RNA sequence: GUACGCGGCUGGUGUUGCCGGCGCGUCACCAUUCUCCUCUUGUCGUUGUUGCUCCGGGGCCGUAUCCGCCCCGGUUUUUUUUU
Number, nucleotide and partner (000 for none) at each position: 001g029002u028003a026004c025005g024006c023007g022008g000009c021010u020011g019012g018013u017014g000015u000016u000017g013018c012019c011020g010021g009022c007023g006024c005025g004026u003027c000028a002029c001030c000031a000032u000033u000034c000035u000036c000037c000038u000039c000040u000041u000042g000043u000044c000045g000046u000047u000048g000049u000050u000051g000052c000053u000054c074055c073056g072057g071058g070059g069060c068061c000062g000063u000064a000065u000066c000067c000068g060069c059070c058071c057072c056073g055074g054075u000076u000077u000078u000079u000080u000081u000082u000083u000
Annotation:
The record is an 83-nucleotide RNA from Burkholderia cenocepacia, which matches "Burkholderia sRNA 16 (Bc_KC_sr1)" in Rfam. The source organism's lineage runs through Bacteria, Pseudomonadota, Burkholderiales, Burkholderia cepacia complex and Burkholderia cenocepacia. The literature on the family includes a 2017 paper in Microbiology by Ghosh et al., "Identification of novel small RNAs in Burkholderia cenocepacia KC-01 expressed under iron limitation and oxidative stress conditions". The family's consensus secondary structure was predicted with RNAfold.